[Rfam]
RNA: emrB-Lactobacillus RNA
Organism: Lactobacillus sp. ASF360
RNA sequence: UACUCAGUAUAAUUUUUGAUCAUUAUACGUCUAAUAUAGUUAUUUAGUAACUAAAGAAAGGGUAG
Numbered sequence: 001u002a003c004u005c006a007g008u009a010u011a012a013u014u015u016u017u018g019a020u021c022a023u024u025a026u027a028c029g030u031c032u033a034a035u036a037u038a039g040u041u042a043u044u045u046a047g048u049a050a051c052u053a054a055a056g057a058a059a060g061g062g063u064a065g
Stems, first nucleotide, its partner, number of pairs: 002063004007028007037053006